[Rfam]
RNA sequence: GUUUGGAUGAUGAAUUAAAUCAGACGGAUUCCCAAUGAUAGCUCUUUUUUCAAGGGAUGAUUACACAACCAGCUACUUCUGACACAU
Numbered sequence: 001g002u003u004u005g006g007a008u009g010a011u012g013a014a015u016u017a018a019a020u021c022a023g024a025c026g027g028a029u030u031c032c033c034a035a036u037g038a039u040a041g042c043u044c045u046u047u048u049u050u051c052a053a054g055g056g057a058u059g060a061u062u063a064c065a066c067a068a069c070c071a072g073c074u075a076c077u078u079c080u081g082a083c084a085c086a087u
Base pairs, nucleotide, nucleotide: 001087002086004084005083
This 87-nucleotide RNA from Rhododendron simsii belongs to the Rfam family "Small nucleolar RNA R12". On this family, see Chen et al., Nucleic Acids Res 2003: "The high diversity of snoRNAs in plants: identification and comparative study of 120 snoRNA genes from Oryza sativa". Lineage of the source: Eukaryota > Embryophyta > Mesangiospermae > Rhodoreae > Rhododendron. The base pairs follow the family's consensus structure, which was predicted with PFOLD. Gene Ontology terms of the family: RNA processing and nucleolus. snoR12 is a C/D box small nucleolar RNA, which acts as a methylation guide for 25S ribosomal RNA in plants. snoR12 has been alternatively named snoZ44 in Arabidopsis and snoZ131 in rice.